[Rfam]
RNA sequence: CAAUGUUACAGGUUUUAGAAUUUGUCUAGCAGGCUUUCCGCUCUUCAUUGGAAAGCCCAU
Numbered sequence: 001c002a003a004u005g006u007u008a009c010a011g012g013u014u015u016u017a018g019a020a021u022u023u024g025u026c027u028a029g030c031a032g033g034c035u036u037u038c039c040g041c042u043c044u045u046c047a048u049u050g051g052a053a054a055g056c057c058c059a060u
Base pairs, nucleotide, nucleotide: 032057033056034055035054036053037052038051039050040049042047